[Rfam]
RNA sequence: AACCUUCGGGUUGCAGCCUGAGUAACAUCAGGCUGAUGGCUGGUGACUUUUUGGUCACCAGCCU
Numbered sequence: 001a002a003c004c005u006u007c008g009g010g011u012u013g014c015a016g017c018c019u020g021a022g023u024a025a026c027a028u029c030a031g032g033c034u035g036a037u038g039g040c041u042g043g044u045g046a047c048u049u050u051u052u053g054g055u056c057a058c059c060a061g062c063c064u
Stems, first nucleotide, its partner, number of pairs: 014035005022026001038063010